Streptomyces RNA 4115: a 107-nucleotide RNA from Streptomyces cacaoi. Identified by deep sequencing of transcriptome at the end of exponential growth phase. Sequencing size consistent with notrthern blot size. Streptomyces specific. Pairs were carried over by alignment from the consensus structure. The source organism's lineage runs through Bacteria, Bacillati, Actinomycetota, Streptomycetaceae and Streptomyces. Rfam classes the family as a small RNA. A search with the family's covariance model found it, with a score of 80 bits.
RNA sequence: GCGUGGGUCGGCCCGCUGUUCAGGAUCAGCGGGCUGGGGGACACCGCCGUCUCAUUUCCCCGCGGACGGCGGUUCGGCCCGGGAGGCGCUCGGCCUCCCGGGCCGAC
Number, nucleotide and partner (000 for none) at each position: 001g000002c105003g000004u000005g000006g075007g074008u000009c036010g035011g034012c033013c032014c031015g030016c029017u028018g027019u000020u000021c000022a000023g000024g000025a000026u000027c018028a017029g016030c015031g014032g013033g012034c011035u010036g009037g042038g000039g000040g000041a000042c037043a000044c072045c071046g070047c069048c068049g067050u066051c065052u064053c000054a000055u000056u000057u000058c000059c000060c000061c000062g000063c000064g052065g051066a050067c049068g048069g047070c046071g045072g044073u000074u007075c006076g104077g103078c102079c101080c100081g099082g098083g097084a096085g095086g094087c093088g000089c000090u000091c000092g000093g087094c086095c085096u084097c083098c082099c081100g080101g079102g078103c077104c076105g002106a000107c000